About this RNA
FMN riboswitch aptamer (RFN element): a 136-nucleotide RNA sequence from Tessaracoccus lapidicaptus. Pairs were carried over by alignment from the consensus structure, which is taken from published work.
RNA sequence: AAACGUGUUCCGGGGUCGGUGAAAGUCCGAACCGGCGGUGAUAGUCCGCGACCCCCGCGGCCCGCAUGGGCCAACGGGUUGACUCGGUGAAAUUCCGAGACCGACAGUCAAAGUCUGGAUGGGAGGCAACACGCUU
Numbered sequence: 001a002a003a004c005g006u007g008u009u010c011c012g013g014g015g016u017c018g019g020u021g022a023a024a025g026u027c028c029g030a031a032c033c034g035g036c037g038g039u040g041a042u043a044g045u046c047c048g049c050g051a052c053c054c055c056c057g058c059g060g061c062c063c064g065c066a067u068g069g070g071c072c073a074a075c076g077g078g079u080u081g082a083c084u085c086g087g088u089g090a091a092a093u094u095c096c097g098a099g100a101c102c103g104a105c106a107g108u109c110a111a112a113g114u115c116u117g118g119a120u121g122g123g124a125g126g127c128a129a130c131a132c133g134c135u136u
Stems, first nucleotide, its partner, number of pairs: 004133006010125001017029003031114002033103002035049004044101002053078002083099005105117003